Shown here is an 86-nucleotide sequence from Oryctolagus cuniculus, a member of the family "mir-1343 microRNA precursor family".
RNA sequence: CUGGCAUCGGUGGUGCUGGGAAGCGGCCCCCGUGGAGGGUCUCCGCUCCGGCCCCUCCUGGGGCCCGCACUCUUCCUCCGGGCCCG
Numbered sequence: 001c002u003g004g005c006a007u008c009g010g011u012g013g014u015g016c017u018g019g020g021a022a023g024c025g026g027c028c029c030c031c032g033u034g035g036a037g038g039g040u041c042u043c044c045g046c047u048c049c050g051g052c053c054c055c056u057c058c059u060g061g062g063g064c065c066c067g068c069a070c071u072c073u074u075c076c077u078c079c080g081g082g083c084c085c086g
Stems, first nucleotide, its partner, number of pairs: 003084003007081004012076002018073003023068004028063005034058002037054005

It scores 68 bits against the family's covariance model. The source organism's lineage runs through Eukaryota, Euteleostomi, Sarcopterygii, Lagomorpha and Oryctolagus. Rfam links the family to the GO terms miRNA-mediated post-transcriptional gene silencing and RISC complex.